[Rfam]
RNA sequence: GCACAUCCAGUAGGAAUUGAACCUACGAAUUCACAAUUAUGACUUGGGCGCUUUAACCAUUCAACAAUGGAUGC
Numbered sequence: 001g002c003a004c005a006u007c008c009a010g011u012a013g014g015a016a017u018u019g020a021a022c023c024u025a026c027g028a029a030u031u032c033a034c035a036a037u038u039a040u041g042a043c044u045u046g047g048g049c050g051c052u053u054u055a056a057c058c059a060u061u062c063a064a065c066a067a068u069g070g071a072u073g074c
Stems, first nucleotide, its partner, number of pairs: 004073005010026005039068002044064005050058001
Plastid-ycf2 5UTR RNA: a 74-nucleotide RNA sequence from Capsicum baccatum. By type it is a cis-regulatory element. The organism belongs to Capsicum, within Eukaryota. The family's consensus secondary structure was predicted with LocARNA. Plastid ycf2 is a non-coding RNA (ncRNA) recognised in plastids. It was found in the prime untranslated region (5UTR) of ycf2 genes, it presents a tRNA-like motif which suggests it can be involved in mRNA maturation, particularly involved in defining the precise 5' end of the transcript. It scores 74 bits against the family's covariance model.